[Rfam]
RNA: DUF805b RNA
RNA sequence: AAAGAGGAACCCGAAAAUCUUCAAAAGAGUAGAGA
Numbered sequence: 001a002a003a004g005a006g007g008a009a010c011c012c013g014a015a016a017a018u019c020u021u022c023a024a025a026a027g028a029g030u031a032g033a034g035a
Base pairs, nucleotide, nucleotide: 002021003020004019005018010034012032